[Rfam]
Insect-Specific Flavivirus 3' UTR repeats Rb: a 50-nucleotide RNA from Culex flavivirus. The family's RNA type in Rfam is cis-regulatory element. The sequence is in the family's curated seed alignment. Rfam describes the family as follows. 3' UTRs in insect specific flavivirus families present three to four repeats of conserved element Rb. Lineage of the source: Viruses > Orthornavirae > Kitrinoviricota > Amarillovirales > Orthoflavivirus. Clan: Insect-Specific Flavivirus 3' UTR repeats Ra and Rb elements.
RNA sequence: CCCCAGUCCCCCAGGUUAUGGAGGAAUAACCCCGACGUGCUGAAAGGGCA
Numbered sequence: 001c002c003c004c005a006g007u008c009c010c011c012c013a014g015g016u017u018a019u020g021g022a023g024g025a026a027u028a029a030c031c032c033c034g035a036c037g038u039g040c041u042g043a044a045a046g047g048g049c050a
Stems, first nucleotide, its partner, number of pairs: 001048003004042004009037001014031005